Nucleotides: 069
Base pairs, nucleotide, nucleotide: 002069003068004067005066
Number, partner (000 for none) and nucleotide at each position: 001000u002069g003068c004067a005066u006000u007000g008000u009000g010000a011000u012000g013000a014000u015000c016000a017000a018000c019000a020000a021000g022000g023000g024000a025000c026000u027000u028000a029000a030000u031000a032000c033000u034000g035000a036000u037000g038000u039000g040000u041000g042000a043000u044000g045000u046000c047000a048000c049000c050000u051000u052000u053000a054000u055000u056000a057000u058000u059000c060000u061000g062000a063000g064000u065000a066005a067004u068003g069002u